[Rfam]
RNA sequence: AGCCUUAAUGUUGCCUGUUCACUUUUGGAAGCUAGUGAAUAUGGUACCAAAAGAGGCAUCAAUAAAUGCUUUGCAGCCUUUUCCUGCCCUUAAAUUUGGUAUCUUUGGUGUAGGAGCUGCAUAAGCAAUAGUU
Numbered sequence: 001a002g003c004c005u006u007a008a009u010g011u012u013g014c015c016u017g018u019u020c021a022c023u024u025u026u027g028g029a030a031g032c033u034a035g036u037g038a039a040u041a042u043g044g045u046a047c048c049a050a051a052a053g054a055g056g057c058a059u060c061a062a063u064a065a066a067u068g069c070u071u072u073g074c075a076g077c078c079u080u081u082u083c084c085u086g087c088c089c090u091u092a093a094a095u096u097u098g099g100u101a102u103c104u105u106u107g108g109u110g111u112a113g114g115a116g117c118u119g120c121a122u123a124a125g126c127a128a129u130a131g132u133u
Stems, first nucleotide, its partner, number of pairs: 002057005009049002012046004016041008068126004072121006082115006088108002093102001
Shown here is a 133-nucleotide RNA from Sciurus carolinensis, a member of the family "Small nucleolar RNA SNORA13". The organism belongs to Sciurus, within Eukaryota. The family's RNA type in Rfam is H/ACA-box small nucleolar RNA. The base pairs follow the family's consensus structure, which was predicted with CMfinder. About the family: ACA13 is a member of the H/ACA class of snoRNA that guide the sites of modification of uridines to pseudouridines.